[Rfam]
RNA sequence: CCGACCGGAUAUUAAGAAGCAAAUCUCAUAAACUCCUUUCAGCCUUCUGACUCCUGGAGUAAUGAAGGCUGCUUUUUUCGUUACACCCUUCCCCGGCAGCGCCGGUGGCAGUGUUCAGCCCUUUUCCGGGCAAACUGCUGCCAGUCUGUCCUAGGCGCAACACAGGCAGCCCGUCGCCAUGCUU
Numbered sequence: 001c002c003g004a005c006c007g008g009a010u011a012u013u014a015a016g017a018a019g020c021a022a023a024u025c026u027c028a029u030a031a032a033c034u035c036c037u038u039u040c041a042g043c044c045u046u047c048u049g050a051c052u053c054c055u056g057g058a059g060u061a062a063u064g065a066a067g068g069c070u071g072c073u074u075u076u077u078u079c080g081u082u083a084c085a086c087c088c089u090u091c092c093c094c095g096g097c098a099g100c101g102c103c104g105g106u107g108g109c110a111g112u113g114u115u116c117a118g119c120c121c122u123u124u125u126c127c128g129g130g131c132a133a134a135c136u137g138c139u140g141c142c143a144g145u146c147u148g149u150c151c152u153a154g155g156c157g158c159a160a161c162a163c164a165g166g167c168a169g170c171c172c173g174u175c176g177c178c179a180u181g182c183u184u
Stems, first nucleotide, its partner, number of pairs: 005057004021029001039050004059084010091155002095151002097148003101145002104142009118131004157182003164174001166172001
This 184-nucleotide RNA sequence from Shigella dysenteriae belongs to the Rfam family "Antisense to pHK01_099". On this family, see Jiang et al., FEMS Microbiol Ecol 2017: "The CTX-M-14 plasmid pHK01 encodes novel small RNAs and influences host growth and motility". The sequence is in the family's curated seed alignment. NCBI's taxonomy places the organism under Bacteria, Pseudomonadati, Pseudomonadota, Enterobacterales, Shigella dysenteriae. The family has 4 seed sequences and 15 matches in Rfam 15.1. Rfam describes the family as follows. The pHK01 produces plasmid-encoded small RNAs and mediates expression of host sRNAs. The family's RNA type in Rfam is antisense RNA.